[Rfam]
RNA sequence: AAAUAGGAAAUGUAAAGAGGGCAUGCGUCAACAUACCCUCACCAGCACCGUUUAAGACGGUGACGAGUAUUUAAAAGACUAAAAA
Number, nucleotide and partner (000 for none) at each position: 001a000002a000003a000004u000005a000006g000007g000008a000009a000010a000011u000012g000013u000014a000015a000016a000017g000018a000019g000020g000021g000022c000023a034024u033025g032026c000027g000028u000029c000030a000031a000032c025033a024034u023035a000036c000037c000038c000039u000040c000041a000042c000043c000044a000045g000046c000047a061048c060049c059050g058051u057052u056053u000054a000055a000056g052057a051058c050059g049060g048061u047062g000063a000064c000065g000066a000067g000068u000069a000070u000071u000072u000073a000074a000075a000076a000077g000078a000079c000080u000081a000082a000083a000084a000085a000
The family of this 85-nucleotide RNA from Enterococcus sp. PFB1-1 is "RNA anti-toxin A". The base pairs follow the family's consensus structure, which was predicted with RNAalifold. Rfam 15.1 lists 190 matches to the family in 120 species. The source organism's lineage runs through Bacteria, Bacillota, Bacilli, Enterococcaceae and Enterococcus. A reference for the family is Fozo et al. (2010), "Abundance of type I toxin-antitoxin systems in bacteria: searches for new candidates and discovery of novel families", Nucleic Acids Res. Rfam links the family to the GO terms mRNA binding and negative regulation of translation. The family's RNA type in Rfam is antitoxin RNA.